A member of the RNA family "L13-Bacteroidia ribosomal protein leader", 75 nucleotides long.

[Rfam]
RNA sequence: GGGGGCACACUUAGAGCCCCCUGUGCUGGUGUGUUAAUAGUGACUCUUUUGGCCGAGAGCCAUGGUUAGUGAAUC
Numbered sequence: 001g002g003g004g005g006c007a008c009a010c011u012u013a014g015a016g017c018c019c020c021c022u023g024u025g026c027u028g029g030u031g032u033g034u035u036a037a038u039a040g041u042g043a044c045u046c047u048u049u050u051g052g053c054c055g056a057g058a059g060c061c062a063u064g065g066u067u068a069g070u071g072a073a074u075c
Base pairs, nucleotide, nucleotide: 001021002020003019004018005017006016034069035068036067037066038065040063041062042061044059045058046057047056048055

By type it is a cis-regulatory leader. For this family Rfam cites "Discovery of 20 novel ribosomal leader candidates in bacteria and archaea" (Eckert and Weinberg, BMC Microbiol, 2020).